[Rfam]
RNA: TPP riboswitch aptamer (THI element)
Organism: Ureibacillus endophyticus
RNA sequence: AAUAUUUGCAGGGGGGGCACUCGUGCCUGAGAAGGUUAAAACCUGACCCUUAGAACCUGUUCGUUAAUACGAUCGUAGGGAGCAAGUACAAUUUUAGC
Numbered sequence: 001a002a003u004a005u006u007u008g009c010a011g012g013g014g015g016g017g018c019a020c021u022c023g024u025g026c027c028u029g030a031g032a033a034g035g036u037u038a039a040a041a042c043c044u045g046a047c048c049c050u051u052a053g054a055a056c057c058u059g060u061u062c063g064u065u066a067a068u069a070c071g072a073u074c075g076u077a078g079g080g081a082g083c084a085a086g087u088a089c090a091a092u093u094u095u096a097g098c
Base pairs, nucleotide, nucleotide: 005086006085007084008083009082010050011049012048013047015044016027017026018025019024034043035042036041056079057078058077059076061072062071063070